[Rfam]
RNA sequence: UUAAUGAUACUUCCGUGAGGCUCGCCAUAAUGAGGGGAGAGGUGAAAUUCCUAUGA
Numbered sequence: 001u002u003a004a005u006g007a008u009a010c011u012u013c014c015g016u017g018a019g020g021c022u023c024g025c026c027a028u029a030a031u032g033a034g035g036g037g038a039g040a041g042g043u044g045a046a047a048u049u050c051c052u053a054u055g056a
Base pairs, nucleotide, nucleotide: 012053013020014019021039022038023037025035026034040052041051042050